RNA sequence: AUUUGCACCGGCGAUGGGGUUCGCCAUUAACCGCCGUAAAAAGCUGAUGACUCCUGUUCGUAG
Numbered sequence: 001a002u003u004u005g006c007a008c009c010g011g012c013g014a015u016g017g018g019g020u021u022c023g024c025c026a027u028u029a030a031c032c033g034c035c036g037u038a039a040a041a042a043g044c045u046g047a048u049g050a051c052u053c054c055u056g057u058u059c060g061u062a063g
Stems, first nucleotide, its partner, number of pairs: 010025004016054006033044002
Dot-bracket structure: .........[[[[..((((((]]]].......((........))....)))))).........
Rfam assigns this 63-nucleotide RNA sequence from Parafilimonas terrae to the family "Fluoride riboswitch aptamer (crcB RNA motif)". NCBI's taxonomy places the organism under Bacteria, Bacteroidota, Chitinophagia, Chitinophagaceae, Parafilimonas.